[Rfam]
RNA sequence: GUGCCCUUUUAGAGCUGACAGAAUGCUUUAAGAGGCUAGCACAGAAGGGGAAAGUAAGUUUGCAUCAAACCCAGAGAAGAGGUUGUCAGCUCAUCUUUGAAUCCUGUCUGGAGUCACAGCU
Numbered sequence: 001g002u003g004c005c006c007u008u009u010u011a012g013a014g015c016u017g018a019c020a021g022a023a024u025g026c027u028u029u030a031a032g033a034g035g036c037u038a039g040c041a042c043a044g045a046a047g048g049g050g051a052a053a054g055u056a057a058g059u060u061u062g063c064a065u066c067a068a069a070c071c072c073a074g075a076g077a078a079g080a081g082g083u084u085g086u087c088a089g090c091u092c093a094u095c096u097u098u099g100a101a102u103c104c105u106g107u108c109u110g111g112a113g114u115c116a117c118a119g120c121u
Stems, first nucleotide, its partner, number of pairs: 002051001004049007014040004019035001058115001060113002063110002072099006079092003083089002
RNA: Small nucleolar RNA SNORA26
Organism: Oryctolagus cuniculus